[Rfam]
RNA sequence: UUACCAGGCCGGGCCCCUCUGACAGUUCCCUGAACUGUGAUGUCGGACUGGAGAC
Numbered sequence: 001u002u003a004c005c006a007g008g009c010c011g012g013g014c015c016c017c018u019c020u021g022a023c024a025g026u027u028c029c030c031u032g033a034a035c036u037g038u039g040a041u042g043u044c045g046g047a048c049u050g051g052a053g054a055c
Stems, first nucleotide, its partner, number of pairs: 006049002009046004022038006

Shown here is a 55-nucleotide RNA sequence from Azospirillum sp. TSH58, a member of the family "terC RNA". The base pairs follow the family's consensus structure, which is taken from published work. The organism belongs to Azospirillum, within Bacteria. It is annotated as a cis-regulatory element.